[Rfam]
RNA sequence: UGCAGUUUGUGAAGACUUGGUCUGAAAGCUCUCCUCUGGGCCGGGCCGAGUCUGAUGUUCCUGCA
Numbered sequence: 001u002g003c004a005g006u007u008u009g010u011g012a013a014g015a016c017u018u019g020g021u022c023u024g025a026a027a028g029c030u031c032u033c034c035u036c037u038g039g040g041c042c043g044g045g046c047c048g049a050g051u052c053u054g055a056u057g058u059u060c061c062u063g064c065a
Stems, first nucleotide, its partner, number of pairs: 001065005014052010029040003